[Rfam]
Rfam assigns this 273-nucleotide sequence to the family "RAGATH-8 RNA". The literature on the family includes a 2015 paper in Nat Chem Biol by Weinberg et al., "New classes of self-cleaving ribozymes revealed by comparative genomics analysis". The family's consensus secondary structure is taken from published work. It is annotated as a small RNA.
RNA sequence: GUCAAUAAGGAAAGCAGGAAAGACCGGGUGAAGCGAUAGGGCUACACGCAAGUAACAUGGUAGUUAGGCUACGGGAUGGUAGACAGAGCGUGUGAAGAAUAAACAUGACCCGGCAAAACAGUUGAAGAAAGCAGGAACGGUAGGACAAGAAAGCACAGUGUUCGGAACGUAGAAGAAAACUGAACAGGUUGAGCCAAUCAACACUUUACUCCUCAACCAAGAAGCCGUUAAGCGGAAGAAUCAACGAGCGAGAGGACACAGUACCUUGUUGGC
Numbered sequence: 001g002u003c004a005a006u007a008a009g010g011a012a013a014g015c016a017g018g019a020a021a022g023a024c025c026g027g028g029u030g031a032a033g034c035g036a037u038a039g040g041g042c043u044a045c046a047c048g049c050a051a052g053u054a055a056c057a058u059g060g061u062a063g064u065u066a067g068g069c070u071a072c073g074g075g076a077u078g079g080u081a082g083a084c085a086g087a088g089c090g091u092g093u094g095a096a097g098a099a100u101a102a103a104c105a106u107g108a109c110c111c112g113g114c115a116a117a118a119c120a121g122u123u124g125a126a127g128a129a130a131g132c133a134g135g136a137a138c139g140g141u142a143g144g145a146c147a148a149g150a151a152a153g154c155a156c157a158g159u160g161u162u163c164g165g166a167a168c169g170u171a172g173a174a175g176a177a178a179a180c181u182g183a184a185c186a187g188g189u190u191g192a193g194c195c196a197a198u199c200a201a202c203a204c205u206u207u208a209c210u211c212c213u214c215a216a217c218c219a220a221g222a223a224g225c226c227g228u229u230a231a232g233c234g235g236a237a238g239a240a241u242c243a244a245c246g247a248g249c250g251a252g253a254g255g256a257c258a259c260a261g262u263a264c265c266u267u268g269u270u271g272g273c
Base pairs, nucleotide, nucleotide: 001273002272003271004270005269006268007267008266009265010264024113025112026111027110028109029108044093045092046091047090048089049088053066054065055064056063069082070081071080072079121245122244123243124242125241131233132232136229137228138227139226140225141224142213143212144211145210150207151206152205153204159186160185161184162183163182164181165180188202189201190200191199192198